[Rfam]
A member of the RNA family "mir-8834 microRNA precursor family" from Canis lupus, 108 nucleotides long. NCBI's taxonomy places the organism under Eukaryota, Deuterostomia, Laurasiatheria, Carnivora, Canis lupus.
RNA sequence: AGGAGGAACAGCCAACAGUGGCAGUGGCCAUCUCUGGAGCCCUGGAUUCAGCUCCUGCAGUAACUACAAAACUCUCAGUCUGCAGGGGCCUGGAUGCUCCAGGGACGG
Numbered sequence: 001a002g003g004a005g006g007a008a009c010a011g012c013c014a015a016c017a018g019u020g021g022c023a024g025u026g027g028c029c030a031u032c033u034c035u036g037g038a039g040c041c042c043u044g045g046a047u048u049c050a051g052c053u054c055c056u057g058c059a060g061u062a063a064c065u066a067c068a069a070a071a072c073u074c075u076c077a078g079u080c081u082g083c084a085g086g087g088g089c090c091u092g093g094a095u096g097c098u099c100c101a102g103g104g105a106c107g108g
Stems, first nucleotide, its partner, number of pairs: 002100004007095001009092003012088002020080003024076001026075002030073001033070001035068002038065001042060003

It scores 47 bits against the family's covariance model.